[Rfam]
cow-rumen-1 RNA: a 63-nucleotide RNA sequence. It is annotated as a small RNA.
RNA sequence: UCACCGGGUACAAAGUUAGGACUUGUAUGUGUAAUUCCGGCAACCAGACACGAUCGAAAGAGG
Numbered sequence: 001u002c003a004c005c006g007g008g009u010a011c012a013a014a015g016u017u018a019g020g021a022c023u024u025g026u027a028u029g030u031g032u033a034a035u036u037c038c039g040g041c042a043a044c045c046a047g048a049c050a051c052g053a054u055c056g057a058a059a060g061a062g063g
Stems, first nucleotide, its partner, number of pairs: 004040004009031004014023003